[Rfam]
RNA sequence: GCAAUCUCGGAUACGACUGAAUUCUGGGGGAUACUCGAAUUAGCCAUUAAAGCUGGUGUUAAUUCGUAGGGUAGGUACUGGUAAACCCUUAUUUGCCAGUAGACGGGAUACUGUUAAAGGAAACCCAACA
Numbered sequence: 001g002c003a004a005u006c007u008c009g010g011a012u013a014c015g016a017c018u019g020a021a022u023u024c025u026g027g028g029g030g031a032u033a034c035u036c037g038a039a040u041u042a043g044c045c046a047u048u049a050a051a052g053c054u055g056g057u058g059u060u061a062a063u064u065c066g067u068a069g070g071g072u073a074g075g076u077a078c079u080g081g082u083a084a085a086c087c088c089u090u091a092u093u094u095g096c097c098a099g100u101a102g103a104c105g106g107g108a109u110a111c112u113g114u115u116a117a118a119g120g121a122a123a124c125c126c127a128a129c130a
Stems, first nucleotide, its partner, number of pairs: 006028006036066007044056003076101010
Rfam assigns this 130-nucleotide RNA sequence to the family "DABA-DC-AT RNA". It is annotated as a cis-regulatory element. The base pairs follow the family's consensus structure, which is taken from published work.